This 77-nucleotide RNA sequence from Stegodyphus mimosarum belongs to the Rfam family "mir-190 microRNA precursor family".
The literature on the family includes a 2006 paper in Nucleic Acids Res by Kloosterman et al., "Cloning and expression of new microRNAs from zebrafish".
NCBI's taxonomy places the organism under Eukaryota, Bilateria, Arthropoda, Entelegynae, Stegodyphus.
RNA sequence: UUGGCUGUUAGAUAUGUUUGAUAUUCUUGGUUGUUGAUAAAAUUUCAACCAAGAAUCAGACAUAUGCUGAUAGACUU
Dot-bracket structure: ....(((((..(((((((((((.((...(((((............))))).)).)))))))))))...)))))....
Notes: It scores 68 bits against the family's covariance model.